This 48-nucleotide RNA belongs to the Rfam family "ssnA RNA". The base pairs follow the family's consensus structure, which is taken from published work. By type it is a cis-regulatory element.
RNA sequence: CCAUACCGAGCUGUAACGGAGCGCUCCGCGCGCGGGCUUUCUUUUGGG
Numbered sequence: 001c002c003a004u005a006c007c008g009a010g011c012u013g014u015a016a017c018g019g020a021g022c023g024c025u026c027c028g029c030g031c032g033c034g035g036g037c038u039u040u041c042u043u044u045u046g047g048g
Base pairs, nucleotide, nucleotide: 008039009038010037011036012035021033022032023031024030